[Rfam]
RNA sequence: CCGUGCGCCCGGUCGGGGCCCGGCAACCGGGCGCCGGACAGGUGUCUGGCGUUCCCUUGUGAUCCAUGUUGCUCAACUGGAGGAUAUGGCAAUGAGGA
Numbered sequence: 001c002c003g004u005g006c007g008c009c010c011g012g013u014c015g016g017g018g019c020c021c022g023g024c025a026a027c028c029g030g031g032c033g034c035c036g037g038a039c040a041g042g043u044g045u046c047u048g049g050c051g052u053u054c055c056c057u058u059g060u061g062a063u064c065c066a067u068g069u070u071g072c073u074c075a076a077c078u079g080g081a082g083g084a085u086a087u088g089g090c091a092a093u094g095a096g097g098a
Stems, first nucleotide, its partner, number of pairs: 001023003005019002008017002030055001031052007056096005064089007072082003
RNA: Repression of heat shock gene expression (ROSE) element
Organism: Rugositalea oryzae